Background
Shown here is an 89-nucleotide sequence, a member of the family "c-di-GMP-II-GAG riboswitch aptamer". Pairs were carried over by alignment from the consensus structure, which is taken from published work.
[Rfam]
RNA sequence: GCACAAGGGGGAGACUGCGACGCGUCGGGAGCAUGCGGUCACUGUACGUCCCCGGCGUCGAGUCAAUGGUGAGACCGGCCCACGUGGUC
Numbered sequence: 001g002c003a004c005a006a007g008g009g010g011g012a013g014a015c016u017g018c019g020a021c022g023c024g025u026c027g028g029g030a031g032c033a034u035g036c037g038g039u040c041a042c043u044g045u046a047c048g049u050c051c052c053c054g055g056c057g058u059c060g061a062g063u064c065a066a067u068g069g070u071g072a073g074a075c076c077g078g079c080c081c082a083c084g085u086g087g088u089c
Stems, first nucleotide, its partner, number of pairs: 001089001004086002007083001009081003013064003022058008037076002039072005